[Rfam]
RNA sequence: AGCACACAUGAUGAAUGACAAAGGGACUUAAUACUGAAACCUGAUGUUACGCUGCAAUGUACUGAUGUGC
Numbered sequence: 001a002g003c004a005c006a007c008a009u010g011a012u013g014a015a016u017g018a019c020a021a022a023g024g025g026a027c028u029u030a031a032u033a034c035u036g037a038a039a040c041c042u043g044a045u046g047u048u049a050c051g052c053u054g055c056a057a058u059g060u061a062c063u064g065a066u067g068u069g070c
Base pairs, nucleotide, nucleotide: 002070003069004068005067006066
RNA: Small nucleolar RNA SNORD82
Organism: Propithecus coquereli